Overview: Rfam assigns this 154-nucleotide sequence from Blastococcus saxobsidens to the family "c-di-AMP riboswitch aptamer (ydaO/yuaA leader)". This family represents a conserved RNA structure found upstream of the ydaO and yuaA genes in Bacillus subtilis and related genes in other bacteria. The ydaO/yuaA element is thought to act as a genetic 'off' switch for the ydaO and yuaA genes in its native state. It is believed that the element may be triggered during osmotic shock leading to activation of ydaO, a predicted amino acid transporter gene, and members of the yuaA-yubG operon which code for KtrA and KtrB K+ transporters. A search with the family's covariance model found it, with a score of 63 bits. The organism belongs to Blastococcus, within Bacteria.
RNA sequence: CGAGUCGCCUCGCUGCCAUCGCGCCGCGGGUGAACCGGGGACCCACCGCAGCACUGGGGUGAAUCACGCGCCGGCACGUCCCGGAGCGAGUAGGGCCACCACUUCUGGGCCCGAACCCGUCAGCUAACCCGGUAGGCGGCAUGACAGAAGAAAC
Numbered sequence: 001c002g003a004g005u006c007g008c009c010u011c012g013c014u015g016c017c018a019u020c021g022c023g024c025c026g027c028g029g030g031u032g033a034a035c036c037g038g039g040g041a042c043c044c045a046c047c048g049c050a051g052c053a054c055u056g057g058g059g060u061g062a063a064u065c066a067c068g069c070g071c072c073g074g075c076a077c078g079u080c081c082c083g084g085a086g087c088g089a090g091u092a093g094g095g096c097c098a099c100c101a102c103u104u105c106u107g108g109g110c111c112c113g114a115a116c117c118c119g120u121c122a123g124c125u126a127a128c129c130c131g132g133u134a135g136g137c138g139g140c141a142u143g144a145c146a147g148a149a150g151a152a153a154c
Stems, first nucleotide, its partner, number of pairs: 001135001005033006034133006044056002057118003065090001067088002093112004
Its family is annotated with regulation of gene expression and cyclic-di-AMP binding in the Gene Ontology.